The family of this 170-nucleotide sequence from Pseudomonas sp. UK4 is "Group II catalytic intron D1-D4-3".
Taxonomically the source falls in Pseudomonas (Bacteria, Pseudomonadati, Pseudomonadota, Gammaproteobacteria).
Pairs were carried over by alignment from the consensus structure.
It is one of the family's seed sequences.
Gene Ontology term of the family: Group II intron splicing.
[Rfam]
RNA sequence: UCGCGGGCGACUGCGAAUCUGAAGGAAGCCCGAGACAAAAUGCUGGCCUGACGAACAGGAAGCGGAUGAGGCGGCGCAGCGGGGUGAGGUGGCCAUAAUCGCCAAAGCCCGAUACUUGCACGGAACGCUGCGACGUAGAUCCGACAGGCAUAAGCAGGAAGGUCGCGCGA
Numbered sequence: 001u002c003g004c005g006g007g008c009g010a011c012u013g014c015g016a017a018u019c020u021g022a023a024g025g026a027a028g029c030c031c032g033a034g035a036c037a038a039a040a041u042g043c044u045g046g047c048c049u050g051a052c053g054a055a056c057a058g059g060a061a062g063c064g065g066a067u068g069a070g071g072c073g074g075c076g077c078a079g080c081g082g083g084g085u086g087a088g089g090u091g092g093c094c095a096u097a098a099u100c101g102c103c104a105a106a107g108c109c110c111g112a113u114a115c116u117u118g119c120a121c122g123g124a125a126c127g128c129u130g131c132g133a134c135g136u137a138g139a140u141c142c143g144a145c146a147g148g149c150a151u152a153a154g155c156a157g158g159a160a161g162g163u164c165g166c167g168c169g170a
Base pairs, nucleotide, nucleotide: 001016002015003014004013005012006011029169031167032166035163036162041156042155043154044153046149047148048147049146050145063143064142065141066140071136072135073134075132076131077130078129079128080127081126082110083109084108085107088103089102090101091100